[Rfam]
RNA sequence: GCAUGGCCUUGGAUUUAUGGCAGGCCCAUCACUGUGAGCCUCACAUAGUGCCUAUGCCAGAGAAACUGGAGCCCCAAACCGUUGCCUGGCCUCCUUGCCCAUAGGCUGUGGGCACUGAAGCGGAUUGCACAGUG
Numbered sequence: 001g002c003a004u005g006g007c008c009u010u011g012g013a014u015u016u017a018u019g020g021c022a023g024g025c026c027c028a029u030c031a032c033u034g035u036g037a038g039c040c041u042c043a044c045a046u047a048g049u050g051c052c053u054a055u056g057c058c059a060g061a062g063a064a065a066c067u068g069g070a071g072c073c074c075c076a077a078a079c080c081g082u083u084g085c086c087u088g089g090c091c092u093c094c095u096u097g098c099c100c101a102u103a104g105g106c107u108g109u110g111g112g113c114a115c116u117g118a119a120g121c122g123g124a125u126u127g128c129a130c131a132g133u134g
Stems, first nucleotide, its partner, number of pairs: 001057004005052003015048005022041003026036001070126002073123002080117002085112002087108006
Small nucleolar RNA SNORA42/SNORA80 family: a 134-nucleotide sequence from Trichechus manatus. The members of this family belong to the H/ACA class of snoRNAs that guide the sites of modification of uridines to pseudouridines. Human ACA42 (SNORA42) was cloned from HeLa cells by immunoprecipitation with anti-GAR1 antibody. Lineage of the source: Eukaryota > Opisthokonta > Sirenia > Trichechus > Trichechus manatus. The base pairs follow the family's consensus structure, which was predicted with RNAalifold.